Shown here is a 262-nucleotide RNA from Cuscuta australis, a member of the family "RNase MRP".
A reference for the family is Schmitt et al. (1993), "Secondary structure of RNase MRP RNA as predicted by phylogenetic comparison", FASEB J.
The family's RNA type in Rfam is ribozyme.
The base pairs follow the family's consensus structure, which is taken from published work.
From the family's description: RNase MRP is an enzymatically active ribonucleoprotein with two distinct roles in eukaryotes.
RNA sequence: GGACCGCGGGACGGCGUGAGCGGGUUAGGCUCAAUCUUUGUUAUUGGGCCGCGACCCAAGAAAGUCCCCGGGCCAUUUCUGCAGAGAUGCAGGCUCGGAAGCGAGUCCCCUUCGCGGGCCGGAUAACGAGACCAAAAUUGGUCUGGGCUGAGACAUGUGUGGAGCCGGACCUUGUUUAUCCGGCUGGAAGGUCCUUGGCCGAUUUCACAGUCAUUCACGUGGCCCUAUGGGCUAAUUGAGCGGGGCUUACGUUCCUGCGGUC
Numbered sequence: 001g002g003a004c005c006g007c008g009g010g011a012c013g014g015c016g017u018g019a020g021c022g023g024g025u026u027a028g029g030c031u032c033a034a035u036c037u038u039u040g041u042u043a044u045u046g047g048g049c050c051g052c053g054a055c056c057c058a059a060g061a062a063a064g065u066c067c068c069c070g071g072g073c074c075a076u077u078u079c080u081g082c083a084g085a086g087a088u089g090c091a092g093g094c095u096c097g098g099a100a101g102c103g104a105g106u107c108c109c110c111u112u113c114g115c116g117g118g119c120c121g122g123a124u125a126a127c128g129a130g131a132c133c134a135a136a137a138u139u140g141g142u143c144u145g146g147g148c149u150g151a152g153a154c155a156u157g158u159g160u161g162g163a164g165c166c167g168g169a170c171c172u173u174g175u176u177u178a179u180c181c182g183g184c185u186g187g188a189a190g191g192u193c194c195u196u197g198g199c200c201g202a203u204u205u206c207a208c209a210g211u212c213a214u215u216c217a218c219g220u221g222g223c224c225c226u227a228u229g230g231g232c233u234a235a236u237u238g239a240g241c242g243g244g245g246c247u248u249a250c251g252u253u254c255c256u257g258c259g260g261u262c
Stems, first nucleotide, its partner, number of pairs: 002262010014220006022057004028050007062248003066245004080091004092107006109191005118184004129177004222232004